Notes: Mason-Pfizer monkey virus packaging signal: a 281-nucleotide RNA from Nannospalax galili. Pairs were carried over by alignment from the consensus structure, which was predicted with PFOLD. Rfam links the family to the GO term viral genome packaging. Lineage of the source: Eukaryota > Vertebrata > Sarcopterygii > Tetrapoda > Nannospalax. A reference for the family is Mustafa et al. (2004), "Mutational analysis of the predicted secondary RNA structure of the Mason-Pfizer monkey virus packaging signal", Virus Res. A search with the family's covariance model found it, with a score of 175 bits.
RNA sequence: UGGCGCCCAACAUGGGGCUGGAUACUGGGGGCAUCUCGUGAGGGAGACGACGGAAAAAGGAAGGAGUGCACUUGUUCAAUUUCAAGCAGUUCGGAGACACGCCGUGGGAGCCUGCUGCGACCGAACCGAAGGUAAGUCAAUCCGUCCGAUCAUGGGGCAAGAAUUGAGCCAGCGUCAGAUUUAUGUCAAGAAAUUGAGAGAGGCUCUAAAGACAUGAGGAGUAAAGGUUAGGACUAUGGAUUUAUUUCAUUUCUUUGAUUUUGUAAAGGACAUUUGUCCCU
Numbered sequence: 001u002g003g004c005g006c007c008c009a010a011c012a013u014g015g016g017g018c019u020g021g022a023u024a025c026u027g028g029g030g031g032c033a034u035c036u037c038g039u040g041a042g043g044g045a046g047a048c049g050a051c052g053g054a055a056a057a058a059g060g061a062a063g064g065a066g067u068g069c070a071c072u073u074g075u076u077c078a079a080u081u082u083c084a085a086g087c088a089g090u091u092c093g094g095a096g097a098c099a100c101g102c103c104g105u106g107g108g109a110g111c112c113u114g115c116u117g118c119g120a121c122c123g124a125a126c127c128g129a130a131g132g133u134a135a136g137u138c139a140a141u142c143c144g145u146c147c148g149a150u151c152a153u154g155g156g157g158c159a160a161g162a163a164u165u166g167a168g169c170c171a172g173c174g175u176c177a178g179a180u181u182u183a184u185g186u187c188a189a190g191a192a193a194u195u196g197a198g199a200g201a202g203g204c205u206c207u208a209a210a211g212a213c214a215u216g217a218g219g220a221g222u223a224a225a226g227g228u229u230a231g232g233a234c235u236a237u238g239g240a241u242u243u244a245u246u247u248c249a250u251u252u253c254u255u256u257g258a259u260u261u262u263g264u265a266a267a268g269g270a271c272a273u274u275u276g277u278c279c280c281u
Base pairs, nucleotide, nucleotide: 006031007030008029012026013024014023036050037049038048039047086133087132090130091129100123101122103119104118105117106116107115141159143157145156146155147154148153165208166207168204169203170202215257216256217255218254219253220252221251225243226242227241228240229239266281268279269278270277271276